[Rfam]
RNA sequence: UGGACCACACGUCAAAUACGCACACUCACCGCAACGGUUCAGAGGGGUGCCCUUGAAAGACAAGAGGGUCUCUGCAACGGGUGGGUGGAGGACUAAC
Numbered sequence: 001u002g003g004a005c006c007a008c009a010c011g012u013c014a015a016a017u018a019c020g021c022a023c024a025c026u027c028a029c030c031g032c033a034a035c036g037g038u039u040c041a042g043a044g045g046g047g048u049g050c051c052c053u054u055g056a057a058a059g060a061c062a063a064g065a066g067g068g069u070c071u072c073u074g075c076a077a078c079g080g081g082u083g084g085g086u087g088g089a090g091g092a093c094u095a096a097c
Stems, first nucleotide, its partner, number of pairs: 023087008036078001038076001040074005049069005
RNA: t44 RNA